[Rfam]
Background:
Streptomyces RNA 2736: a 65-nucleotide RNA from Streptomyces sp. TverLS-915. Rfam describes the family as follows. Identified by deep sequencing of transcriptome at the end of exponential growth phase. Appears smaller on northern blot than sequencing transcript. This indicates processing step. Streptomyces specific. A search with the family's covariance model found it, with a score of 65 bits. The source organism's lineage runs through Bacteria, Actinomycetota, Actinomycetes, Kitasatosporales and Streptomyces. For this family Rfam cites "Deep sequencing-based identification of small non-coding RNAs in Streptomyces coelicolor" (Vockenhuber et al., RNA Biol, 2011).
RNA sequence: CGCCCGGCCGGAUCCCGUGGGGGGAAUCCGAUCCCGGGGCACAGGAAGGCGCCCCGACCGUCAGC
Numbered sequence: 001c002g003c004c005c006g007g008c009c010g011g012a013u014c015c016c017g018u019g020g021g022g023g024g025a026a027u028c029c030g031a032u033c034c035c036g037g038g039g040c041a042c043a044g045g046a047a048g049g050c051g052c053c054c055c056g057a058c059c060g061u062c063a064g065c
Stems, first nucleotide, its partner, number of pairs: 002062001003038005009030005014024003044053002